[Rfam]
RNA sequence: GGACCAAUGAUGACUUACAAAAAUGGAUCUCGUUGGAAUCUGAACAAAAUGAGUGACCAAACCACUUCUGUGAGCUGAGUGGUCC
Numbered sequence: 001g002g003a004c005c006a007a008u009g010a011u012g013a014c015u016u017a018c019a020a021a022a023a024u025g026g027a028u029c030u031c032g033u034u035g036g037a038a039u040c041u042g043a044a045c046a047a048a049a050u051g052a053g054u055g056a057c058c059a060a061a062c063c064a065c066u067u068c069u070g071u072g073a074g075c076u077g078a079g080u081g082g083u084c085c
Stems, first nucleotide, its partner, number of pairs: 001085005027054002030052002033047003
A member of the RNA family "Small nucleolar RNA SNORD116" from Sciurus carolinensis, 85 nucleotides long. A reference for the family is Cavaille et al. (2000), "Identification of brain-specific and imprinted small nucleolar RNA genes exhibiting an unusual genomic organization", Proc Natl Acad Sci U S A. Rfam links the family to the GO terms nucleolus and RNA processing. The match comes from Rfam's covariance-model search (44 bits). The family has 48 seed sequences and 3,260 matches in Rfam 15.1. Rfam classes the family as a C/D-box small nucleolar RNA.